[Rfam]
RNA sequence: ACACAGUAAAGCCACACCCGUCGCGAGGCGGGGCCGGAAAGCUACGGGUCUCCAGUCAGACAGCCGGGUUGCCAAU
Numbered sequence: 001a002c003a004c005a006g007u008a009a010a011g012c013c014a015c016a017c018c019c020g021u022c023g024c025g026a027g028g029c030g031g032g033g034c035c036g037g038a039a040a041g042c043u044a045c046g047g048g049u050c051u052c053c054a055g056u057c058a059g060a061c062a063g064c065c066g067g068g069u070u071g072c073c074a075a076u
Stems, first nucleotide, its partner, number of pairs: 012037002017032006040070004045066003048061003
Dot-bracket structure: ...........((...((((((....))))))...))..((((.((((((........)))..)))))))......
The family of this 76-nucleotide RNA sequence from Methylococcus sp. EFPC2 is "c-di-GMP-I riboswitch aptamer". Lineage of the source: Bacteria > Pseudomonadota > Gammaproteobacteria > Methylococcales > Methylococcus. The family's consensus secondary structure is taken from published work. A search with the family's covariance model found it, with a score of 58 bits.